[Rfam]
RNA sequence: UCGAAGCAUUAAGAGUGCCUUUAGGUACGGCAACCGGGUUUAAGCUCCAUCGGUGCCAAAACAAUGCGCGGCUUCUGCCGAAAAAAAGCUGUAAGC
Numbered sequence: 001u002c003g004a005a006g007c008a009u010u011a012a013g014a015g016u017g018c019c020u021u022u023a024g025g026u027a028c029g030g031c032a033a034c035c036g037g038g039u040u041u042a043a044g045c046u047c048c049a050u051c052g053g054u055g056c057c058a059a060a061a062c063a064a065u066g067c068g069c070g071g072c073u074u075c076u077g078c079c080g081a082a083a084a085a086a087a088g089c090u091g092u093a094a095g096c
Base pairs, nucleotide, nucleotide: 006067007066008065009064010063015028016027017026018025019024029057030056031055034053035052036051037048038047043090044089045088069080070079071078072077
RNA: SAM-I/IV (S-adenosyl methionine) riboswitch aptamer
Organism: Rufibacter tibetensis